[Rfam]
RNA sequence: CGAAAAAAAACCCUACAGAUAUACUCUGUAGGGUCCUUCAAAACCUUUUCACAUGUAAAAGGUUGAAGGCAAAGGGAGAGGAGAAACCGGAGGAAGAACUUAUGGGGAAACGUAAGUCUUCUCCGCGG
Number, nucleotide and partner (000 for none) at each position: 001c000002g000003a000004a000005a000006a000007a000008a000009a000010a000011c033012c032013c031014u030015a029016c028017a027018g026019a025020u000021a000022u000023a000024c000025u019026c018027u017028g016029u015030a014031g013032g012033g011034u076035c075036c074037u073038u072039c000040a000041a000042a000043a063044c062045c061046u060047u059048u058049u000050c000051a000052c000053a000054u000055g000056u000057a000058a048059a047060a046061g045062g044063u043064u000065g000066a000067a000068g000069g000070c000071a000072a038073a037074g036075g035076g034077a000078g000079a000080g000081g000082a000083g000084a000085a000086a000087c000088c125089g124090g123091a122092g000093g121094a120095a119096g118097a000098a117099c116100u115101u114102a113103u000104g000105g000106g000107g000108a000109a000110a000111c000112g000113u102114a101115a100116g099117u098118c096119u095120u094121c093122u091123c090124c089125g088126c000127g000128g000

Source information: ylbH leader: a 128-nucleotide sequence from Metabacillus litoralis. This family is a putative regulatory RNA structure that is found upstream of the ylbH gene in B. subtilis and related low GC Gram-positive bacteria. A reference for the family is Barrick et al. (2004), "New RNA motifs suggest an expanded scope for riboswitches in bacterial genetic control", Proc Natl Acad Sci U S A.